SAH (S-adenosyl-L-homocysteine) riboswitch aptamer: an 80-nucleotide RNA sequence from Rhizobacter sp. Root1221. Rfam links the family to the GO terms S-adenosylhomocysteine metabolic process and regulation of gene expression.
[Rfam]
RNA sequence: CUUUCCGAGGAGCGUUGCAAGGCCGCCCACCCCAGGCGCCCCAGGCUCGGAAGCUUGAUCUGCAACCGCGCUCACCCGCA
Numbered sequence: 001c002u003u004u005c006c007g008a009g010g011a012g013c014g015u016u017g018c019a020a021g022g023c024c025g026c027c028c029a030c031c032c033c034a035g036g037c038g039c040c041c042c043a044g045g046c047u048c049g050g051a052a053g054c055u056u057g058a059u060c061u062g063c064a065a066c067c068g069c070g071c072u073c074a075c076c077c078g079c080a
Base pairs, nucleotide, nucleotide: 002053003052004051005050006049007048008047021040022039023038025037026036027035